About this RNA:
Selenocysteine insertion sequence 1: a 65-nucleotide RNA from Triplophysa rosa. The incorporation of selenocysteine into a protein sequence is directed by an in-frame UGA codon (usually a stop codon) within the coding region of the mRNA. Selenoprotein mRNAs contain a conserved secondary structure in the 3' UTR that is required for the distinction of UGA stop from UGA selenocysteine. The selenocysteine insertion sequence (SECIS) is around 60 nt in length and adopts a hairpin structure which is sufficiently well-defined and conserved to act as a computational screen for selenoprotein genes. The literature on the family includes a 1996 paper in RNA by Walczak et al., "A novel RNA structural motif in the selenocysteine insertion element of eukaryotic selenoprotein mRNAs". By type it is a cis-regulatory element. It scores 40 bits against the family's covariance model. Pairs were carried over by alignment from the consensus structure, which is taken from published work. Rfam 15.1 lists 3,793 matches to the family in 721 species.
[Rfam]
RNA sequence: GUGGCAUAAUGAACGCCUGUGCUGAAAACACAACUGCUGUUGGUACAGGCUGGAUGCUCAGCCAC
Number, nucleotide and partner (000 for none) at each position: 001g065002u064003g063004g062005c061006a000007u000008a000009a000010u000011g000012a000013a000014c000015g050016c049017c048018u047019g046020u045021g044022c043023u042024g000025a000026a000027a000028a000029c000030a000031c000032a000033a000034c000035u000036g000037c000038u000039g000040u000041u000042g023043g022044u021045a020046c019047a018048g017049g016050c015051u000052g000053g000054a000055u000056g000057c000058u000059c000060a000061g005062c004063c003064a002065c001